[Rfam]
This 102-nucleotide RNA from Marinobacterium marinum belongs to the Rfam family "Glycine riboswitch aptamer". The source organism's lineage runs through Bacteria, Pseudomonadati, Gammaproteobacteria, Oceanospirillaceae and Marinobacterium. This family represents the bacterial glycine riboswitch. Glycine riboswitches usually consist of two metabolite-binding aptamers domains with similar structures in tandem. The aptamers cooperatively bind glycine to regulate the expression of downstream genes.

RNA sequence: UAAGCGUCGACUGGAGAGAGGUUGGCUAAUGACCAACCCACCGAAGGGGCAAAGCGGCCUUGGCCGCACAAACUCUCAGGUAACCGGGACAGAGGGAGAGAC
Dot-bracket structure: ......((..(((......((((...........)))).(((((..(((....(((((....))))).....))))).)))........)))..))......